RNA: mir-574 microRNA precursor family
RNA sequence: AGGCCAGGAUUGAGAGGCAGGGUCUGAUCCACAGCCUCCGUGGCAGCUGUUGAUCAGCCUUCGCCUCUCUUUCUCUUUCUC
Numbered sequence: 001a002g003g004c005c006a007g008g009a010u011u012g013a014g015a016g017g018c019a020g021g022g023u024c025u026g027a028u029c030c031a032c033a034g035c036c037u038c039c040g041u042g043g044c045a046g047c048u049g050u051u052g053a054u055c056a057g058c059c060u061u062c063g064c065c066u067c068u069c070u071u072u073c074u075c076u077u078u079c080u081c
Base pairs, nucleotide, nucleotide: 008073009072012069013068014067015066016065017064018063020061022059024057025056026055027054028053029052032049033048034047035046